Overview: Molybdenum/Tungsten riboswitch aptamer (Moco RNA motif): a 149-nucleotide RNA sequence from Microbulbifer agarilyticus. The organism belongs to Microbulbifer, within Bacteria.
RNA sequence: CGAUAUAAACAACACCGAGCCUGCAUUCCUAAGUCAUCGAUAAGUGAGCGAUACGGGAUGUAGGCCGCGAGCGGUAAAACCGCCCGCCAGGGUCGCAAGGGAAACCGAACGGCCUCCCGCAUUUGGAAAGGUGAUGAAGGAAAACCGCG
Numbered sequence: 001c002g003a004u005a006u007a008a009a010c011a012a013c014a015c016c017g018a019g020c021c022u023g024c025a026u027u028c029c030u031a032a033g034u035c036a037u038c039g040a041u042a043a044g045u046g047a048g049c050g051a052u053a054c055g056g057g058a059u060g061u062a063g064g065c066c067g068c069g070a071g072c073g074g075u076a077a078a079a080c081c082g083c084c085c086g087c088c089a090g091g092g093u094c095g096c097a098a099g100g101g102a103a104a105c106c107g108a109a110c111g112g113c114c115u116c117c118c119g120c121a122u123u124u125g126g127a128a129a130g131g132u133g134a135u136g137a138a139g140g141a142a143a144a145c146c147g148c149g
Stems, first nucleotide, its partner, number of pairs: 004142001006140001011135001013133004019065011033052003067087003071083004090115006099106002116126002